The family of this 124-nucleotide RNA sequence from Arachis hypogaea is "small nucleolar RNA snoR127". The literature on the family includes a 2009 paper in Nucleic Acids Res by Chen and Wu, "Mining small RNA sequencing data: a new approach to identify small nucleolar RNAs in Arabidopsis". The family's consensus secondary structure was predicted with RNAalifold. By type it is a C/D-box small nucleolar RNA. NCBI's taxonomy places the organism under Eukaryota, eudicotyledons, Pentapetalae, Fabaceae, Arachis. Gene Ontology terms of the family: RNA processing and nucleolus.
[Rfam]
RNA sequence: CUGGAAUGAUGCGAAUUAGCCAAAUCAGACGUUGAUGUGCUCCAUAAUUCUCUUUUAUGUUGAAGCGCAUAAUCAAUGUGUGAUGAUCAUCAACGGAGAUUGGUGUAUCUGUUUCCUGACUAGA
Numbered sequence: 001c002u003g004g005a006a007u008g009a010u011g012c013g014a015a016u017u018a019g020c021c022a023a024a025u026c027a028g029a030c031g032u033u034g035a036u037g038u039g040c041u042c043c044a045u046a047a048u049u050c051u052c053u054u055u056u057a058u059g060u061u062g063a064a065g066c067g068c069a070u071a072a073u074c075a076a077u078g079u080g081u082g083a084u085g086a087u088c089a090u091c092a093a094c095g096g097a098g099a100u101u102g103g104u105g106u107a108u109c110u111g112u113u114u115c116c117u118g119a120c121u122a123g124a
Base pairs, nucleotide, nucleotide: 001123002122003121004120